[Rfam]
Shown here is a 77-nucleotide sequence from Vigna angularis, a member of the family "Small nucleolar RNA Z105". For this family Rfam cites "The high diversity of snoRNAs in plants: identification and comparative study of 120 snoRNA genes from Oryza sativa" (Chen et al., Nucleic Acids Res, 2003). NCBI's taxonomy places the organism under Eukaryota, eudicotyledons, Papilionoideae, Phaseoleae, Vigna angularis. Rfam classes the family as a C/D-box small nucleolar RNA.
RNA sequence: AUGGCAUGGUGAUGAUGUUUACGAAUAUUUUCAUAUGAUAAUUCAUAUGAUGAACACAAUCCUCCUACUCAUUCUGA
Numbered sequence: 001a002u003g004g005c006a007u008g009g010u011g012a013u014g015a016u017g018u019u020u021a022c023g024a025a026u027a028u029u030u031u032c033a034u035a036u037g038a039u040a041a042u043u044c045a046u047a048u049g050a051u052g053a054a055c056a057c058a059a060u061c062c063u064c065c066u067a068c069u070c071a072u073u074c075u076g077a
Stems, first nucleotide, its partner, number of pairs: 006072004031053002035046001